[Rfam]
Shown here is a 104-nucleotide RNA from Streptococcus henryi, a member of the family "Trans-activating crRNA".
The pairing is the family consensus, mapped onto this sequence.
Taxonomically the source falls in Streptococcus (Bacteria, Bacillati, Bacilli, Streptococcaceae).
RNA-guided Streptococcus pyogenes Cas9 (SpCas9) is a sequence-specific DNA endonuclease, the Trans-activating CRISPR RNA form an hybrid with the crRNA (crRNA/tracrRNA). The RNA hybrid acts as a guide for the endonuclease Cas9.

RNA sequence: UGUUGGAACUAUUCGAAACAACACAGCAAGUUAAAAUAAGGCAGAGGUUUUAACCCAGUCCGUAUCCAACUUGAAAAAGUGGCACCCGAUUCGGGUGUUUUUUU
Numbered sequence: 001u002g003u004u005g006g007a008a009c010u011a012u013u014c015g016a017a018a019c020a021a022c023a024c025a026g027c028a029a030g031u032u033a034a035a036a037u038a039a040g041g042c043a044g045a046g047g048u049u050u051u052a053a054c055c056c057a058g059u060c061c062g063u064a065u066c067c068a069a070c071u072u073g074a075a076a077a078a079g080u081g082g083c084a085c086c087c088g089a090u091u092c093g094g095g096u097g098u099u100u101u102u103u104u
Stems, first nucleotide, its partner, number of pairs: 001036001003034003009026002012023001040061002069080001071078002082098007